The family of this 85-nucleotide RNA sequence from Solanum tuberosum is "MIR8024 microRNA precursor family". The base pairs follow the family's consensus structure, which was predicted with RNAalifold. The organism belongs to Solanum, within Eukaryota.
RNA sequence: UUGAUUGAUUUGAGACUUCAUCUUCCAGACUUGAAGAAUUUGAAGACUUCAACUUGCAGACUUGAAGAAUUUGAUGACUUCAACU
Numbered sequence: 001u002u003g004a005u006u007g008a009u010u011u012g013a014g015a016c017u018u019c020a021u022c023u024u025c026c027a028g029a030c031u032u033g034a035a036g037a038a039u040u041u042g043a044a045g046a047c048u049u050c051a052a053c054u055u056g057c058a059g060a061c062u063u064g065a066a067g068a069a070u071u072u073g074a075u076g077a078c079u080u081c082a083a084c085u
Base pairs, nucleotide, nucleotide: 001083002082003081004080010074011073012072013070016067017066018065019064020063024058026056027055031052032051033050034049035048036047
Dot-bracket structure: ((((.....((((..(((((...(.((...((((((..........))))))..)).)....)))))..).))).....))))..